Shown here is an 89-nucleotide sequence from Gossypium armourianum, a member of the family "MIR7486 microRNA precursor family".
RNA sequence: CACGUCAGCGCGAGUUGCUGACGUGGAAGGAAAUCGCGUCCUUGAGGGCGUGAUUUCCUGACGCGUACCCUGACAUCGCGCUGACGUGG
Number, nucleotide and partner (000 for none) at each position: 001c088002a087003c086004g085005u084006c083007a082008g081009c080010g079011c078012g077013a076014g000015u000016u073017g070018c000019u000020g000021a066022c000023g064024u063025g062026g000027a000028a059029g058030g057031a056032a055033a054034u053035c052036g051037c050038g049039u000040c047041c046042u000043u000044g000045a000046g041047g040048g000049c038050g037051u036052g035053a034054u033055u032056u031057c030058c029059u028060g000061a000062c025063g024064c023065g000066u021067a000068c000069c000070c017071u000072g000073a016074c000075a000076u013077c012078g011079c010080g009081c008082u007083g006084a005085c004086g003087u002088g001089g000
Lineage of the source: Eukaryota > Viridiplantae > Embryophyta > Pentapetalae > Gossypium. The base pairs follow the family's consensus structure, which was predicted with RNAalifold.